[Rfam]
Nucleotides: 058
Stems, first nucleotide, its partner, number of pairs: 009051004014046002027044006
Number, partner (000 for none) and nucleotide at each position: 001000u002000g003000g004000c005000a006000c007000c008000a009051c010050c011049u012048u013000c014046c015045a016000c017000a018000a019000c020000g021000g022000a023000u024000c025000g026000u027044c028043c029042g030041g031040c032039a033000c034000g035000u036000u037000c038000c039032u040031g041030c042029c043028g044027g045015u046014g047000a048012a049011g050010g051009g052000g053000g054000c055000c056000u057000a058000c
The record is a 58-nucleotide sequence, which matches "msiK RNA" in Rfam. Rfam classes the family as a cis-regulatory element. The match comes from Rfam's covariance-model search (59 bits).